Small nucleolar RNA Z161/Z228: an 86-nucleotide RNA sequence from Cuscuta australis.
RNA sequence: UGCCUAAUGAUGAAUUUACGAUCAAAAUUCUCACGACGGUCGUCUGAUCCCUCAUGAUGUAUACUGAUCUAUAUUUUCUGAUGGCG
Numbered sequence: 001u002g003c004c005u006a007a008u009g010a011u012g013a014a015u016u017u018a019c020g021a022u023c024a025a026a027a028u029u030c031u032c033a034c035g036a037c038g039g040u041c042g043u044c045u046g047a048u049c050c051c052u053c054a055u056g057a058u059g060u061a062u063a064c065u066g067a068u069c070u071a072u073a074u075u076u077u078c079u080g081a082u083g084g085c086g
Base pairs, nucleotide, nucleotide: 001086002085003084004083050059

Record summary:
For this family Rfam cites "The high diversity of snoRNAs in plants: identification and comparative study of 120 snoRNA genes from Oryza sativa" (Chen et al., Nucleic Acids Res, 2003).